[Rfam]
RNA: Antizyme RNA frameshifting stimulation element
Organism: Jaculus jaculus
RNA sequence: UGAUGGCCUUCACCCACUGUUAAAGAUUACUGGUGGGUGAGGGGGUGGCAGGAAUC
Numbered sequence: 001u002g003a004u005g006g007c008c009u010u011c012a013c014c015c016a017c018u019g020u021u022a023a024a025g026a027u028u029a030c031u032g033g034u035g036g037g038u039g040a041g042g043g044g045g046u047g048g049c050a051g052g053a054a055u056c
Stems, first nucleotide, its partner, number of pairs: 007043005013037006025056004030051001